[Rfam]
RNA sequence: GUGAGGCGCGCCUAGGGUUCCGCGCCGGGAGAACCGGCGGCUGGUCCGAGAGGUGCAGGCGCCCCGCGGCAACGCCGGGCGUUCCACGGCGGGACAAAAGCCCGGGAGAC
Numbered sequence: 001g002u003g004a005g006g007c008g009c010g011c012c013u014a015g016g017g018u019u020c021c022g023c024g025c026c027g028g029g030a031g032a033a034c035c036g037g038c039g040g041c042u043g044g045u046c047c048g049a050g051a052g053g054u055g056c057a058g059g060c061g062c063c064c065c066g067c068g069g070c071a072a073c074g075c076c077g078g079g080c081g082u083u084c085c086a087c088g089g090c091g092g093g094a095c096a097a098a099a100g101c102c103c104g105g106g107a108g109a110c
Base pairs, nucleotide, nucleotide: 008056009055010054011053012052015047016046020044021043022041023039024038025037026036027035028034058083059082060081061080062079063078064077085105087108091103092102093101
Overview: Shown here is a 110-nucleotide RNA from Dactylosporangium siamense, a member of the family "Guanidine-I riboswitch aptamer". About the family: This family represents a conserved RNA structure found upstream of the ykkC and yxkD genes in Bacillus subtilis and related genes in other bacteria. Lineage of the source: Bacteria > Bacillati > Actinomycetota > Micromonosporales > Dactylosporangium.